RNA sequence: CAGCAGGGGUAGGACCUGCCAGUAGAACUUGCCCAGUUGCUACUGUAGUCAUACCGGACGGCAGGGAAAGUAAUUUCUCUGACCGAAAGCUCCGGAGUAAAAGUCUCAGCCGGCAAAGCGCGAGCAGCGUCGGGUCCGUCAGGGAGGCGAGCAAGUCAGCAGGCCGCAGCACAA
Numbered sequence: 001c002a003g004c005a006g007g008g009g010u011a012g013g014a015c016c017u018g019c020c021a022g023u024a025g026a027a028c029u030u031g032c033c034c035a036g037u038u039g040c041u042a043c044u045g046u047a048g049u050c051a052u053a054c055c056g057g058a059c060g061g062c063a064g065g066g067a068a069a070g071u072a073a074u075u076u077c078u079c080u081g082a083c084c085g086a087a088a089g090c091u092c093c094g095g096a097g098u099a100a101a102a103g104u105c106u107c108a109g110c111c112g113g114c115a116a117a118g119c120g121c122g123a124g125c126a127g128c129g130u131c132g133g134g135u136c137c138g139u140c141a142g143g144g145a146g147g148c149g150a151g152c153a154a155g156u157c158a159g160c161a162g163g164c165c166g167c168a169g170c171a172c173a174a
Base pairs, nucleotide, nucleotide: 020045021044022043023042024041054095055094056093057092059085060084061083062081063080064079068075069074103148104147105146106145107144151167152166
RNA: Group II catalytic intron D1-D4-4
Organism: Edaphobacter modestus